[Rfam]
RNA sequence: GAGGCUGCGAUAUGGGGAGCUGGCCAGGCUGUGAGGGACGGAGCAGAGUUGGCUUGUGGCUCCUUGUGGCCCCCUCCAGCAGCUUCCUCCUCACAGUCUGCACAGCUCUCCGUCUCUUGUCCUC
Numbered sequence: 001g002a003g004g005c006u007g008c009g010a011u012a013u014g015g016g017g018a019g020c021u022g023g024c025c026a027g028g029c030u031g032u033g034a035g036g037g038a039c040g041g042a043g044c045a046g047a048g049u050u051g052g053c054u055u056g057u058g059g060c061u062c063c064u065u066g067u068g069g070c071c072c073c074c075u076c077c078a079g080c081a082g083c084u085u086c087c088u089c090c091u092c093a094c095a096g097u098c099u100g101c102a103c104a105g106c107u108c109u110c111c112g113u114c115u116c117u118u119g120u121c122c123u124c
Stems, first nucleotide, its partner, number of pairs: 001124004006119002009116002012113011025100013
RNA: MIR533 microRNA precursor family
Organism: Physcomitrium patens